Rfam assigns this 127-nucleotide RNA sequence from Streptococcus agalactiae to the family "Streptococcus sRNA SpR19".
The organism belongs to Streptococcus agalactiae, within Bacteria.
RNA sequence: GCUGUUUUUUUAGCGAGCUCAAGGUAGUGAAAGUUGGGUAGAAUAGGAUGAAUAUUGGCACUUUUUAGUGAGUAAAAGUACAAUCAAAAAUGAAGUAAUAAAUUAGGGUGGAACCGCGUCUUUGACG
Numbered sequence: 001g002c003u004g005u006u007u008u009u010u011u012a013g014c015g016a017g018c019u020c021a022a023g024g025u026a027g028u029g030a031a032a033g034u035u036g037g038g039u040a041g042a043a044u045a046g047g048a049u050g051a052a053u054a055u056u057g058g059c060a061c062u063u064u065u066u067a068g069u070g071a072g073u074a075a076a077a078g079u080a081c082a083a084u085c086a087a088a089a090a091u092g093a094a095g096u097a098a099u100a101a102a103u104u105a106g107g108g109u110g111g112a113a114c115c116g117c118g119u120c121u122u123u124g125a126c127g
Base pairs, nucleotide, nucleotide: 001117002116004114005113006112007111008110009108010107017073018072019071022066023065024064026062027061028060029059032056033055034054039050040049079094081092082091